Rfam assigns this 61-nucleotide sequence from Pontibaca methylaminivorans to the family "Glycine riboswitch aptamer".
This family represents the bacterial glycine riboswitch. Glycine riboswitches usually consist of two metabolite-binding aptamers domains with similar structures in tandem.
It scores 38 bits against the family's covariance model.
Taxonomically the source falls in Pontibaca (Bacteria, Pseudomonadati, Alphaproteobacteria, Roseobacteraceae).
The base pairs follow the family's consensus structure.
RNA sequence: CUCUGGAGAGAGGCGCGAGCGCCCGCCGAAGGGAUUAACGAUCUCAGGCAAAAGGACAGGG
Number, nucleotide and partner (000 for none) at each position: 001c061002u060003c059004u058005g057006g000007a000008g000009a000010g000011a000012g023013g022014c021015g020016c000017g000018a000019g000020c015021g014022c013023c012024c000025g049026c048027c047028g045029a044030a000031g000032g043033g042034a000035u000036u000037a000038a000039c000040g000041a000042u033043c032044u029045c028046a000047g027048g026049c025050a000051a000052a000053a000054g000055g000056a000057c005058a004059g003060g002061g001